[Rfam]
RNA: mir-965 microRNA precursor family
RNA sequence: ACCCCGGGGUGGAAAGUUGUAGCGCUCAUGUUUGAUUUUUGAUAUACAUAAGCGUAUAGCUUUUCCCCUUCGGUU
Numbered sequence: 001a002c003c004c005c006g007g008g009g010u011g012g013a014a015a016g017u018u019g020u021a022g023c024g025c026u027c028a029u030g031u032u033u034g035a036u037u038u039u040u041g042a043u044a045u046a047c048a049u050a051a052g053c054g055u056a057u058a059g060c061u062u063u064u065c066c067c068c069u070u071c072g073g074u075u
Base pairs, nucleotide, nucleotide: 003073004072006070007069009067011065013063014062017059018058019057020056021055025052026051028049029048030047
Dot-bracket structure: ..((.((.(.(.((..(((((...((.(((................))).))..)))))..)).).).)).))..